RNA sequence: GUCCAAAAUACAGUGGUGAUGUAUUUUCCAGUCACAUAUCUGAUCACUCUGUGCGGGAAAUGACUGUUCCUGAGUGAUUUUGGAU
Numbered sequence: 001g002u003c004c005a006a007a008a009u010a011c012a013g014u015g016g017u018g019a020u021g022u023a024u025u026u027u028c029c030a031g032u033c034a035c036a037u038a039u040c041u042g043a044u045c046a047c048u049c050u051g052u053g054c055g056g057g058a059a060a061u062g063a064c065u066g067u068u069c070c071u072g073a074g075u076g077a078u079u080u081u082g083g084a085u
Stems, first nucleotide, its partner, number of pairs: 001085006008078002010075002
RNA: Small nucleolar RNA SNORD121A
Organism: Mesembrinibis cayennensis